A member of the RNA family "Bacterial small signal recognition particle RNA" from Tunturiibacter empetritectus, 98 nucleotides long. The family's RNA type in Rfam is non-coding RNA gene. The family's consensus secondary structure is taken from published work. Rfam describes the family as follows. The signal recognition particle (SRP) is a universally conserved ribonucleoprotein involved in the co-translational targeting of proteins to membranes.
[Rfam]
RNA sequence: UGCCGGGUCCUACGCGACGUAAUCCCGCCAACCCCGCCAGGUCCGGAAGGAAGCAACGGUAACGGGUCAUUACGGGCGCAGUAGGUCGCCCGGUGCAC
Numbered sequence: 001u002g003c004c005g006g007g008u009c010c011u012a013c014g015c016g017a018c019g020u021a022a023u024c025c026c027g028c029c030a031a032c033c034c035c036g037c038c039a040g041g042u043c044c045g046g047a048a049g050g051a052a053g054c055a056a057c058g059g060u061a062a063c064g065g066g067u068c069a070u071u072a073c074g075g076g077c078g079c080a081g082u083a084g085g086u087c088g089c090c091c092g093g094u095g096c097a098c
Base pairs, nucleotide, nucleotide: 004092005091006090007089008088009085010084011083012082013081015076018074019073020072021071022070024066025065026064027063034059035058036057042051043050044049
Description: The match comes from Rfam's covariance-model search (70 bits). The organism belongs to Tunturiibacter, within Bacteria.